The record is a 102-nucleotide RNA sequence from Tetzosporium hominis, which matches "SAM riboswitch aptamer (S box leader)" in Rfam. From the family's description: The SAM riboswitch is found upstream of a number of genes which code for proteins involved in methionine or cysteine biosynthesis in Gram-positive bacteria. The source organism's lineage runs through Bacteria, Bacillati, Bacillota, Caryophanaceae and Tetzosporium. Its family is annotated with regulation of gene expression in the Gene Ontology.

RNA sequence: UUCUUAUCAAGAGAGACGGAGGGAAUUGGCCCUACGAAGUCUCAGCAACCUGCCUAUCAGGUAAGGUGCUCCAUCCAACAGGUCUAACCUGAACGAUGAGGA
Numbered sequence: 001u002u003c004u005u006a007u008c009a010a011g012a013g014a015g016a017c018g019g020a021g022g023g024a025a026u027u028g029g030c031c032c033u034a035c036g037a038a039g040u041c042u043c044a045g046c047a048a049c050c051u052g053c054c055u056a057u058c059a060g061g062u063a064a065g066g067u068g069c070u071c072c073a074u075c076c077a078a079c080a081g082g083u084c085u086a087a088c089c090u091g092a093a094c095g096a097u098g099a100g101g102a
Base pairs, nucleotide, nucleotide: 001102002101003100004099005098006097007096008095013043014042015041016040017039021032022031023030026078027077028076029075044070045069046068047067049066050065051063052062053061054060079091080090081089082088083087